[Rfam]
RNA: Mammalian CPEB3 ribozyme
Organism: Mauremys mutica
RNA sequence: CAUGUUGUUGCAGAUGUAACAGUAGCAGUGUUCACAUCGUGGCCCCUGUCAGAUUCUUAUGCAUCUGUGAAUUCUGCU
Numbered sequence: 001c002a003u004g005u006u007g008u009u010g011c012a013g014a015u016g017u018a019a020c021a022g023u024a025g026c027a028g029u030g031u032u033c034a035c036a037u038c039g040u041g042g043c044c045c046c047u048g049u050c051a052g053a054u055u056c057u058u059a060u061g062c063a064u065c066u067g068u069g070a071a072u073u074c075u076g077c078u
Stems, first nucleotide, its partner, number of pairs: 013046001016043002021078005027072001028040003050067005056061001